This 300-nucleotide sequence from Mycobacterium shinjukuense belongs to the Rfam family "Mycobacterium smegmatis small RNA 1". The literature on the family includes a 2014 paper in Nucleic Acids Res by Hnilicova et al., "Ms1, a novel sRNA interacting with the RNA polymerase core in mycobacteria". Rfam describes the family as follows. Mycobacterium smegmatis small RNA 1 is highly expressed during stationary phase of growth. Ms1 RNA directly interacts with RNA polymerase (RNAP), but in a different way than 6S, which is present in other bacteria. Ms1 does not require the presence of the main sigma factor for RNAP interaction.
RNA sequence: ACGGAAGCCCGGUGAGGCCAAGGUCGAACCGGAAGAGAAGGUUCGCCCUCCCGAUCCGGGCACCCAGCACGGUUCCCGGCACCCACGCGGAGUCAUAGCCGCGAUAAUGGCAGAAGUGUUGCGGGCCUGCGUAAUUGCGAAGAGCAGAUGGUGUCGACGGCCCUUUGGGUGGGGCUGCAGCCGGAAGCGUCGCAAACGCGCCGAGGCCAACCCACGCAGCCCACAGUGCACGCUUGGUACCCGAGAGCCGUGUUGGCGGGCGGCGAUUCGAAAGCCUUCGGUCGCCGCCCGCUUUGCAUU
Number, nucleotide and partner (000 for none) at each position: 001a000002c000003g064004g063005a000006a000007g061008c060009c059010c058011g057012g056013u000014g000015a000016g052017g051018c000019c000020a000021a049022g048023g000024u000025c045026g044027a043028a042029c041030c040031g000032g000033a000034a000035g000036a000037g000038a000039a000040g030041g029042u028043u027044c026045g025046c000047c000048c022049u021050c000051c017052c016053g000054a000055u000056c012057c011058g010059g009060g008061c007062a000063c004064c003065c255066a254067g253068c252069a251070c250071g249072g248073u247074u000075c000076c000077c243078g242079g241080c000081a000082c000083c237084c236085a235086c000087g233088c232089g231090g000091a000092g229093u228094c000095a000096u000097a000098g111099c110100c109101g000102c000103g000104a000105u000106a000107a000108u000109g100110g099111c098112a000113g000114a000115a000116g000117u000118g220119u219120u218121g217122c216123g215124g208125g207126c206127c205128u204129g201130c200131g199132u198133a000134a000135u195136u194137g193138c192139g191140a190141a000142g000143a000144g188145c187146a000147g000148a000149u183150g182151g181152u180153g000154u000155c000156g000157a000158c177159g176160g175161c174162c173163c172164u171165u000166u000167g000168g000169g000170u000171g164172g163173g162174g161175c160176u159177g158178c000179a000180g152181c151182c150183g149184g000185a000186a000187g145188c144189g000190u140191c139192g138193c137194a136195a135196a000197c000198g132199c131200g130201c129202c000203g000204a128205g127206g126207c125208c124209a000210a000211c000212c000213c000214a000215c123216g122217c121218a120219g119220c118221c000222c000223a000224c000225a000226g000227u000228g093229c092230a000231c089232g088233c087234u000235u085236g084237g083238u000239a000240c000241c079242c078243g077244a000245g000246a000247g073248c072249c071250g070251u069252g068253u067254u066255g065256g292257c291258g290259g289260g288261c287262g286263g285264c284265g283266a282267u000268u281269c280270g279271a000272a000273a000274g000275c000276c000277u000278u000279c270280g269281g268282u266283c265284g264285c263286c262287g261288c260289c259290c258291g257292c256293u000294u000295u000296g000297c000298a000299u000300u000